[Rfam]
This 151-nucleotide RNA sequence from Enterobacter sp. 638 belongs to the Rfam family "FMN riboswitch aptamer (RFN element)".
RNA sequence: GCUUAUUCUCAGGGCGGGGCGAAAUUCCCCACCGGCGGUAAAUCAGCCUUGCGCUGAAAGCCCGCGAGCGCUUUGGGUGAAAACCUAAAGGUCAGCAGAUCCGGUGUAAUUCCGGAGCCGACGGUUAGAGUCCGGAUGGGAGAGAGUAACG
Numbered sequence: 001g002c003u004u005a006u007u008c009u010c011a012g013g014g015c016g017g018g019g020c021g022a023a024a025u026u027c028c029c030c031a032c033c034g035g036c037g038g039u040a041a042a043u044c045a046g047c048c049u050u051g052c053g054c055u056g057a058a059a060g061c062c063c064g065c066g067a068g069c070g071c072u073u074u075g076g077g078u079g080a081a082a083a084c085c086u087a088a089a090g091g092u093c094a095g096c097a098g099a100u101c102c103g104g105u106g107u108a109a110u111u112c113c114g115g116a117g118c119c120g121a122c123g124g125u126u127a128g129a130g131u132c133c134g135g136a137u138g139g140g141a142g143a144g145a146g147u148a149a150c151g
Stems, first nucleotide, its partner, number of pairs: 003149008017029003031131002033120002035065004060118002068096002100116005122134003
The organism belongs to Enterobacter, within Bacteria.